[Rfam]
T-box leader: a 233-nucleotide sequence from Salibacterium salarium. A reference for the family is Gerdeman et al. (2003), "Solution structure of the Bacillus subtilis T-box antiterminator RNA: seven nucleotide bulge characterized by stacking and flexibility", J Mol Biol. The organism belongs to Salibacterium, within Bacteria. It scores 109 bits against the family's covariance model. Uncharged tRNA acts as the effector for transcription antitermination of genes in the T-box leader family. T-boxes are found upstream of many aminoacyl-tRNA synthetase genes and some amino acid biosynthetic genes usually in Gram-positive bacteria. The anticodon of a specific tRNA base pairs to a specifier sequence within the T-box motif, and the NCCA acceptor tail of the tRNA base pairs to a conserved bulge in the T-box antiterminator hairpin.
Nucleotides: 233
Stems, first nucleotide, its partner, number of pairs: 007106002015101004026090005038079001049076008108143006145155003173199006204230004215226004
Number, partner (000 for none) and nucleotide at each position: 001000a002000a003000a004000a005000a006000a007106g008105c009000a010000a011000c012000g013000a014000a015101a016100g017099a018098g019000a020000g021000u022000a023000g024000u025000a026090a027089a028088u029087u030086a031000a032000g033000a034000a035000c036000c037000g038079u039000c040000a041000u042000a043000c044000a045000g046000g047000g048000a049076a050075g051074g052073a053072a054071u055070g056069c057000c058000g059000u060000a061000g062000a063000c064000u065000g066000g067000a068000a069056g070055c071054g072053u073052u074051c075050c076049u077000a078000u079038g080000a081000c082000a083000g084000g085000a086030u087029g088028a089027u090026u091000g092000a093000a094000u095000u096000c097000g098018c099017u100016c101015u102000g103000g104000a105008g106007c107000u108143g109142g110141c111140a112139c113138c114000g115000g116000a117000c118000a119000a120000c121000g122000a123000c124000g125000a126000u127000g128000g129000u130000a131000a132000c133000g134000u135000u136000a137000a138113g139112g140111u141110g142109c143108c144000c145155c146154g147153g148000g149000a150000u151000a152000u153147c154146c155145g156000u157000u158000a159000u160000c161000u162000a163000a164000c165000a166000u167000c168000g169000a170000g171000u172000g173199a174198a175197u176196c177195g178194c179000u180000g181000a182000a183000c184000a185000u186000a187000g188000u189000g190000u191000u192000c193000u194178g195177c196176g197175a198174u199173u200000a201000a202000c203000a204230a205229g206228g207227g208000u209000g210000g211000u212000a213000c214000c215226g216225c217224g218223a219000a220000c221000c222000u223218u224217c225216g226215u227207c228206c229205c230204u231000u232000u233000u